Small nucleolar RNA SNORA9: a 133-nucleotide RNA from Synaphobranchus kaupii.

[Rfam]
RNA sequence: GCGCAGGCCGUUCAGCGAGGCUGGACCUGCCCUGUGGUCCUGUCCUUUCCUGUAGUGUCUGCUAGAGAGACCGGGGCGGUUUGAGGCCUGGCCGUGACACUCCGCGGCAAGGUUAUGGAAACCUCGGACAAUG
Dot-bracket structure: ..((((((.........(((..(((((........)))))...)))..........)))))).........(((((..........(((.((.(((......))).)).))).........))))).......
Numbered sequence: 001g002c003g004c005a006g007g008c009c010g011u012u013c014a015g016c017g018a019g020g021c022u023g024g025a026c027c028u029g030c031c032c033u034g035u036g037g038u039c040c041u042g043u044c045c046u047u048u049c050c051u052g053u054a055g056u057g058u059c060u061g062c063u064a065g066a067g068a069g070a071c072c073g074g075g076g077c078g079g080u081u082u083g084a085g086g087c088c089u090g091g092c093c094g095u096g097a098c099a100c101u102c103c104g105c106g107g108c109a110a111g112g113u114u115a116u117g118g119a120a121a122c123c124u125c126g127g128a129c130a131a132u133g
Stems, first nucleotide, its partner, number of pairs: 003062006018046003023040005072126005087112003091108002094105003
Rfam links the family to the GO terms RNA processing and nucleolus. Rfam describes the family as follows. ACA9 is a member of the H/ACA class of snoRNA that guide the sites of modification of uridines to pseudouridines.